[Rfam]
A member of the RNA family "mir-87 microRNA precursor family" from Portunus trituberculatus, 74 nucleotides long. Rfam 15.1 lists 420 matches to the family in 285 species. On this family, see Sempere et al., Dev Biol 2003: "Temporal regulation of microRNA expression in Drosophila melanogaster mediated by hormonal signals and broad-Complex gene activity". The base pairs follow the family's consensus structure, which was predicted with RNAalifold. Its family is annotated with miRNA-mediated post-transcriptional gene silencing and RISC complex in the Gene Ontology. A search with the family's covariance model found it, with a score of 53 bits.
RNA sequence: CAUCCCCCACCUGAGACUUGCUUUGGACCUUUGUUCGCUUUAUUAGGUGAGCAAAGUUUCAGGUGUGUGGAGGU
Numbered sequence: 001c002a003u004c005c006c007c008c009a010c011c012u013g014a015g016a017c018u019u020g021c022u023u024u025g026g027a028c029c030u031u032u033g034u035u036c037g038c039u040u041u042a043u044u045a046g047g048u049g050a051g052c053a054a055a056g057u058u059u060c061a062g063g064u065g066u067g068u069g070g071a072g073g074u
Base pairs, nucleotide, nucleotide: 003071004070005069007067008065009064010063011062012061013060014059016057017056018055019054023051024050026048028047029046030045